[Rfam]
RNA sequence: UCGAUAGAAUGUUCCUGAGUCAUUGGGGAGUAGCCGCUCUUCAAUCUGAAGAGGCUUGCGUCAACAUACUUGGUCAUUCGACCAUGGCGUAAGCGGUUUCUGCUUGGCAAGACCUUUGACCAUACUGCCUUCCGAAUGGCCGGGGAGGUGGUGUGGUCAUUCGUCGAAUUCCGGCCAAGGAAACC
Numbered sequence: 001u002c003g004a005u006a007g008a009a010u011g012u013u014c015c016u017g018a019g020u021c022a023u024u025g026g027g028g029a030g031u032a033g034c035c036g037c038u039c040u041u042c043a044a045u046c047u048g049a050a051g052a053g054g055c056u057u058g059c060g061u062c063a064a065c066a067u068a069c070u071u072g073g074u075c076a077u078u079c080g081a082c083c084a085u086g087g088c089g090u091a092a093g094c095g096g097u098u099u100c101u102g103c104u105u106g107g108c109a110a111g112a113c114c115u116u117u118g119a120c121c122a123u124a125c126u127g128c129c130u131u132c133c134g135a136a137u138g139g140c141c142g143g144g145g146a147g148g149u150g151g152u153g154u155g156g157u158c159a160u161u162c163g164u165c166g167a168a169u170u171c172c173g174g175c176c177a178a179g180g181a182a183a184c185c
Base pairs, nucleotide, nucleotide: 038051054094055093056092057091058090059089060088061087062086063085071084072083073082074081075080095185096184097183098182099181100180101179
RNA: Manganese Mn2+ riboswitch aptamer (yybP-ykoY)